[Rfam]
RNA: Bacterial large subunit ribosomal RNA, nucleotides 813 to 1253
RNA sequence: CUCCCCGAAAACUAUUGAGGUAGUGCCUCGUGUAUUGCUCCAGGGGGUAGAGCACUGUUAUGGCUAGGGGGACAUGGCGUCUUACCAAACCAUGGCAAACUCCGAAUACUUGGAAGUAAGAGCACGGGAGACAGAGCACCGGGUGCUAACGUCCGGACUCAAGAGGGAAACAACCCAGACCGCCGUUUAAGGUCCCAAAUAUUGACUAAGUGGAAAACGAAGUGUGAAGGCUAAGACAGUCAGGAAGUUGGCUUAGAAGCAGCCAUCCUUCAAAGAAAGCGUAAUAGCUCACUGAUCGAGUCCUCAUGCGCGGAAGAUGUAACGGGGCUAAGUCAAUAACCGAAAGCGCGGAUUUGCAUGAAAAUGCAAGUGGUAGGGGAGCGUUCUGUAAGCCUGCGAAGGUAGUUCGAGAGGGCUGCUGGAGGUAUCAGAAGUGCGAAU
Numbered sequence: 001c002u003c004c005c006c007g008a009a010a011a012c013u014a015u016u017g018a019g020g021u022a023g024u025g026c027c028u029c030g031u032g033u034a035u036u037g038c039u040c041c042a043g044g045g046g047g048u049a050g051a052g053c054a055c056u057g058u059u060a061u062g063g064c065u066a067g068g069g070g071g072a073c074a075u076g077g078c079g080u081c082u083u084a085c086c087a088a089a090c091c092a093u094g095g096c097a098a099a100c101u102c103c104g105a106a107u108a109c110u111u112g113g114a115a116g117u118a119a120g121a122g123c124a125c126g127g128g129a130g131a132c133a134g135a136g137c138a139c140c141g142g143g144u145g146c147u148a149a150c151g152u153c154c155g156g157a158c159u160c161a162a163g164a165g166g167g168a169a170a171c172a173a174c175c176c177a178g179a180c181c182g183c184c185g186u187u188u189a190a191g192g193u194c195c196c197a198a199a200u201a202u203u204g205a206c207u208a209a210g211u212g213g214a215a216a217a218c219g220a221a222g223u224g225u226g227a228a229g230g231c232u233a234a235g236a237c238a239g240u241c242a243g244g245a246a247g248u249u250g251g252c253u254u255a256g257a258a259g260c261a262g263c264c265a266u267c268c269u270u271c272a273a274a275g276a277a278a279g280c281g282u283a284a285u286a287g288c289u290c291a292c293u294g295a296u297c298g299a300g301u302c303c304u305c306a307u308g309c310g311c312g313g314a315a316g317a318u319g320u321a322a323c324g325g326g327g328c329u330a331a332g333u334c335a336a337u338a339a340c341c342g343a344a345a346g347c348g349c350g351g352a353u354u355u356g357c358a359u360g361a362a363a364a365u366g367c368a369a370g371u372g373g374u375a376g377g378g379g380a381g382c383g384u385u386c387u388g389u390a391a392g393c394c395u396g397c398g399a400a401g402g403u404a405g406u407u408c409g410a411g412a413g414g415g416c417u418g419c420u421g422g423a424g425g426u427a428u429c430a431g432a433a434g435u436g437c438g439a440a441u
Stems, first nucleotide, its partner, number of pairs: 001381006011024005026130001027128007035121001036118003039114006050103001051101002056097003060093004067086002069083005134160003139156006165176003180351004185347003191341003200338007218312002222309006229302003239296005245269001247267001250264003270274001275290001279288002352371008382436001384433005392426003401420008